[Rfam]
RNA sequence: CGAUCGCAUAGCAUCUGAAAAGAUGUGAAAUUCGCCUGUGAUUCCGGCAACUGCAUAAUUUAUGUGGUGGCGAAAAAACACCUGCUUGACCAUGGGAUGUAGCAUCGGA
Numbered sequence: 001c002g003a004u005c006g007c008a009u010a011g012c013a014u015c016u017g018a019a020a021a022g023a024u025g026u027g028a029a030a031u032u033c034g035c036c037u038g039u040g041a042u043u044c045c046g047g048c049a050a051c052u053g054c055a056u057a058a059u060u061u062a063u064g065u066g067g068u069g070g071c072g073a074a075a076a077a078a079c080a081c082c083u084g085c086u087u088g089a090c091c092a093u094g095g096g097a098u099g100u101a102g103c104a105u106c107g108g109a
Stems, first nucleotide, its partner, number of pairs: 011026006032073005051067006083104004
Dot-bracket structure: ..........((((((....)))))).....(((((..............((((((.....)))))).))))).........((((..............)))).....